[Rfam]
RNA sequence: GACUUCCCAUCCCCAUAGCCGCGUGGCAGGAGCGGGGGACCCAGUCAGUACGCCGGCCCGGAUCUCCGGACGGCUCGGGGUGAAGUCGCACGACGAGCGCGGCCGGGCAUCUCCAGCCCGAACCCGACAGCUCACCUCGCAGGCGCCGGAGAGGAACG
Numbered sequence: 001g002a003c004u005u006c007c008c009a010u011c012c013c014c015a016u017a018g019c020c021g022c023g024u025g026g027c028a029g030g031a032g033c034g035g036g037g038g039a040c041c042c043a044g045u046c047a048g049u050a051c052g053c054c055g056g057c058c059c060g061g062a063u064c065u066c067c068g069g070a071c072g073g074c075u076c077g078g079g080g081u082g083a084a085g086u087c088g089c090a091c092g093a094c095g096a097g098c099g100c101g102g103c104c105g106g107g108c109a110u111c112u113c114c115a116g117c118c119c120g121a122a123c124c125c126g127a128c129a130g131c132u133c134a135c136c137u138c139g140c141a142g143g144c145g146c147c148g149g150a151g152a153g154g155a156a157c158g
Stems, first nucleotide, its partner, number of pairs: 004031003032140006042077001078125003086102004105119004
This 158-nucleotide RNA sequence from Streptomyces inusitatus belongs to the Rfam family "c-di-AMP riboswitch aptamer (ydaO/yuaA leader)". Rfam's curators write: This family represents a conserved RNA structure found upstream of the ydaO and yuaA genes in Bacillus subtilis and related genes in other bacteria. The pairing is the family consensus, mapped onto this sequence.